[Rfam]
RNA sequence: GGGCGCGGAUCGUGGGGGCACCACUCUUACUUUCACGGUGGAUUUCCCAAGAUCCGUGAU
Number, nucleotide and partner (000 for none) at each position: 001g000002g000003g000004c058005g057006c056007g055008g054009a053010u052011c051012g000013u049014g048015g047016g046017g045018g044019c000020a000021c041022c040023a039024c038025u037026c000027u035028u000029a000030c000031u000032u000033u000034c000035a027036c000037g025038g024039u023040g022041g021042a000043u000044u018045u017046c016047c015048c014049a013050a000051g011052a010053u009054c008055c007056g006057u005058g004059a000060u000
RNA: mir-1986 microRNA precursor family